The family of this 64-nucleotide RNA sequence from Microlunatus endophyticus is "Fluoride riboswitch aptamer (crcB RNA motif)".
[Rfam]
RNA sequence: UUGGUUUCAGGCGAUGGGGCUCGCUCGCAGUACCGCCGCAAUGGCUGAUGGCUCCUGGUUGGAC
Numbered sequence: 001u002u003g004g005u006u007u008c009a010g011g012c013g014a015u016g017g018g019g020c021u022c023g024c025u026c027g028c029a030g031u032a033c034c035g036c037c038g039c040a041a042u043g044g045c046u047g048a049u050g051g052c053u054c055c056u057g058g059u060u061g062g063a064c
Stems, first nucleotide, its partner, number of pairs: 010025004016055006035045003

Pairs were carried over by alignment from the consensus structure, which is taken from published work. The literature on the family includes a 2012 paper in Science by Baker et al., "Widespread genetic switches and toxicity resistance proteins for fluoride".